[Rfam]
RNA sequence: CUCUGGGGUCCUCGAUGCGGCCCUCGCAUGAGCCCGCAAUAUUUUCCUUAUAUGAUCAGGUCCCAUUGCUGCUUGCGCGGAGCCUGAGAGGAUUAUGAAAACGUGGCAGGCGAGGUGGGGCCAGGGGACCCGGCG
Numbered sequence: 001c002u003c004u005g006g007g008g009u010c011c012u013c014g015a016u017g018c019g020g021c022c023c024u025c026g027c028a029u030g031a032g033c034c035c036g037c038a039a040u041a042u043u044u045u046c047c048u049u050a051u052a053u054g055a056u057c058a059g060g061u062c063c064c065a066u067u068g069c070u071g072c073u074u075g076c077g078c079g080g081a082g083c084c085u086g087a088g089a090g091g092a093u094u095a096u097g098a099a100a101a102c103g104u105g106g107c108a109g110g111c112g113a114g115g116u117g118g119g120g121c122c123a124g125g126g127g128a129c130c131c132g133g134c135g
Base pairs, nucleotide, nucleotide: 001135003133006131007130008129009128010127011126012125013124020121021120022119023118024117056087057086058085059084060083061082063080064079068076069075
Shown here is a 135-nucleotide sequence from Microcebus murinus, a member of the family "small Cajal body-specific RNA 17". Rfam describes the family as follows. scaRNAs are a specific class of small nuclear RNAs which localise to the Cajal bodies and guide the modification of RNA polymerase II transcribed spliceosomal RNAs U1, U2, U4, U5 and U12. The complete human U12-22/U4-8 scaRNA is composed of two tandem C/D box domains (termed U12-22 and U4-8). Rfam 15.1 lists 262 matches to the family in 128 species. Its family is annotated with RNA processing, nucleolus and Cajal body in the Gene Ontology. It is annotated as a small Cajal body RNA. The family's consensus secondary structure is taken from published work. Lineage of the source: Eukaryota > Gnathostomata > Theria > Eutheria > Microcebus.